[Rfam]
RNA sequence: UCGUGCUAGAUGGGGAGGUAGCGGUGCCCUAUAACCUGCAACCCGCUAUAGCAGGAUUGAAGUCCCGGCCCAGGCAUCCUAUUGUGGGGUCUGCCCUAGGAAAGUGAUGUUGACGAUUGGGUCUUGCGCAACGGAAAUUCAUGAACCCCGUCAGAUCCGGAAGGAAGCAGCGGUAAGUGAACACUUCUGUGUGCCGCAGGGGAGCCUAAUCCGAGUUAACUGCUUAGGUAACGCUUGUAGUAGUAUGUCAAAGCUGGGUGCACGA
Numbered sequence: 001u002c003g004u005g006c007u008a009g010a011u012g013g014g015g016a017g018g019u020a021g022c023g024g025u026g027c028c029c030u031a032u033a034a035c036c037u038g039c040a041a042c043c044c045g046c047u048a049u050a051g052c053a054g055g056a057u058u059g060a061a062g063u064c065c066c067g068g069c070c071c072a073g074g075c076a077u078c079c080u081a082u083u084g085u086g087g088g089g090u091c092u093g094c095c096c097u098a099g100g101a102a103a104g105u106g107a108u109g110u111u112g113a114c115g116a117u118u119g120g121g122u123c124u125u126g127c128g129c130a131a132c133g134g135a136a137a138u139u140c141a142u143g144a145a146c147c148c149c150g151u152c153a154g155a156u157c158c159g160g161a162a163g164g165a166a167g168c169a170g171c172g173g174u175a176a177g178u179g180a181a182c183a184c185u186u187c188u189g190u191g192u193g194c195c196g197c198a199g200g201g202g203a204g205c206c207u208a209a210u211c212c213g214a215g216u217u218a219a220c221u222g223c224u225u226a227g228g229u230a231a232c233g234c235u236u237g238u239a240g241u242a243g244u245a246u247g248u249c250a251a252a253g254c255u256g257g258g259u260g261c262a263c264g265a
Stems, first nucleotide, its partner, number of pairs: 001265006009058003012030004017025001019023001035055005064258006073249005079243010092230002096227005104220002106217003115211008123200006129191002132189005138181005148173004156165003
This 265-nucleotide sequence from Proteiniborus sp. DW1 belongs to the Rfam family "Bacterial large signal recognition particle RNA". It scores 214 bits against the family's covariance model. For this family Rfam cites "SRPDB: Signal Recognition Particle Database" (Rosenblad et al., Nucleic Acids Res, 2003). It is annotated as a non-coding RNA gene. From the family's description: The signal recognition particle (SRP) is a universally conserved ribonucleoprotein involved in the co-translational targeting of proteins to membranes.